[Rfam]
RNA sequence: UUGCAUCCACUGAUAGACCAGAAGCAGACAUUGUUGGCUUCUUGGUUUGCGCAAAGAUGCUAAACUGAGCCUUCCUCGUGCUUUCUGACUGCUGAAUAUCAUAGCAGCACAGAUAAGAAUGUGGAAAACAAUU
Numbered sequence: 001u002u003g004c005a006u007c008c009a010c011u012g013a014u015a016g017a018c019c020a021g022a023a024g025c026a027g028a029c030a031u032u033g034u035u036g037g038c039u040u041c042u043u044g045g046u047u048u049g050c051g052c053a054a055a056g057a058u059g060c061u062a063a064a065c066u067g068a069g070c071c072u073u074c075c076u077c078g079u080g081c082u083u084u085c086u087g088a089c090u091g092c093u094g095a096a097u098a099u100c101a102u103a104g105c106a107g108c109a110c111a112g113a114u115a116a117g118a119a120u121g122u123g124g125a126a127a128a129c130a131a132u133u
Base pairs, nucleotide, nucleotide: 003060004059005058006057007056011051012050014049015048016047017046018045019044022040023039024038025037027035028034073125074124075123077121078120084113085112086111087110089107090106091105092104093103